[Rfam]
RNA sequence: CGAGAUAAUCGUGGUGAAGGAACUCGGCAAAAUGCCCCCGUAACUUCGGAAUAAGGGGGGCCCGAGGUGUUCACGCACUGAGGGCCGCAGAGACCACAGGAAAGCGACUGUUUAUCAAAAACACAGGUCCGUGCCAAGUCGCAAGACGAUGUAUACGGACUGACUCCUGCCCGGUGCUGGAAGGUUAAGGGGAAGUGUCAGCUUCGGCAAAGCACUGAACUUAAGCCCCAGUAAACGGCGGUGGUAACUAUAACCAUCCUAAGGUAGCGAAAUUCCUUGUCGGGUAAGUUCCGACCUGCACGAAUGGAGCAACGACUUUCCUACUGUCUCCACCACGAACUCG
Numbered sequence: 001c002g003a004g005a006u007a008a009u010c011g012u013g014g015u016g017a018a019g020g021a022a023c024u025c026g027g028c029a030a031a032a033u034g035c036c037c038c039c040g041u042a043a044c045u046u047c048g049g050a051a052u053a054a055g056g057g058g059g060g061c062c063c064g065a066g067g068u069g070u071u072c073a074c075g076c077a078c079u080g081a082g083g084g085c086c087g088c089a090g091a092g093a094c095c096a097c098a099g100g101a102a103a104g105c106g107a108c109u110g111u112u113u114a115u116c117a118a119a120a121a122c123a124c125a126g127g128u129c130c131g132u133g134c135c136a137a138g139u140c141g142c143a144a145g146a147c148g149a150u151g152u153a154u155a156c157g158g159a160c161u162g163a164c165u166c167c168u169g170c171c172c173g174g175u176g177c178u179g180g181a182a183g184g185u186u187a188a189g190g191g192g193a194a195g196u197g198u199c200a201g202c203u204u205c206g207g208c209a210a211a212g213c214a215c216u217g218a219a220c221u222u223a224a225g226c227c228c229c230a231g232u233a234a235a236c237g238g239c240g241g242u243g244g245u246a247a248c249u250a251u252a253a254c255c256a257u258c259c260u261a262a263g264g265u266a267g268c269g270a271a272a273u274u275c276c277u278u279g280u281c282g283g284g285u286a287a288g289u290u291c292c293g294a295c296c297u298g299c300a301c302g303a304a305u306g307g308a309g310c311a312a313c314g315a316c317u318u319u320c321c322u323a324c325u326g327u328c329u330c331c332a333c334c335a336c337g338a339a340c341u342c343g
Base pairs, nucleotide, nucleotide: 001343002342003341004340009338010337011336012335013334014333015332016331018329019328020327035059036058037057038056039055044049060085061084062083063082066079067078068077070075086090098322099321100320101319102318103317104316105314106313109123110122111121126161127160128159129158130157131156132155133154134151138147139146140145164309165308166307167306169239170238171237174236175235176232177231178230179229180228183227184226185225189221190220194216195215196214197213198212201208202207240258241257242256243255244254245253259263269296279295280294281293282292283291284290
A member of the RNA family "Bacterial large subunit ribosomal RNA" from Propioniferax innocua, 343 nucleotides of a longer RNA.
A search with the family's covariance model found it, with a score of 2812 bits.
The family is grouped with related families in Rfam's "LSU clan".